[Rfam]
RNA sequence: AUAACCAGCGGACUAUGUACUCGUAUAAUGCCGAGAAUGGGCUUGGCAGUUUCUACCGGAUGACCGUGAAUCGUCCGACUACGAGGUUGAUUGCAACGGUU
Numbered sequence: 001a002u003a004a005c006c007a008g009c010g011g012a013c014u015a016u017g018u019a020c021u022c023g024u025a026u027a028a029u030g031c032c033g034a035g036a037a038u039g040g041g042c043u044u045g046g047c048a049g050u051u052u053c054u055a056c057c058g059g060a061u062g063a064c065c066g067u068g069a070a071u072c073g074u075c076c077g078a079c080u081a082c083g084a085g086g087u088u089g090a091u092u093g094c095a096a097c098g099g100u101u
Stems, first nucleotide, its partner, number of pairs: 020085006029048007057077007
Annotation: The family of this 101-nucleotide RNA sequence from Alicyclobacillaceae bacterium I2511 is "Purine riboswitch aptamer". Gene Ontology term of the family: purine nucleobase biosynthetic process. Pairs were carried over by alignment from the consensus structure, which is taken from published work. Rfam describes the family as follows. Riboswitches are metabolite binding domains within certain messenger RNAs that serve as precision sensors for their corresponding targets.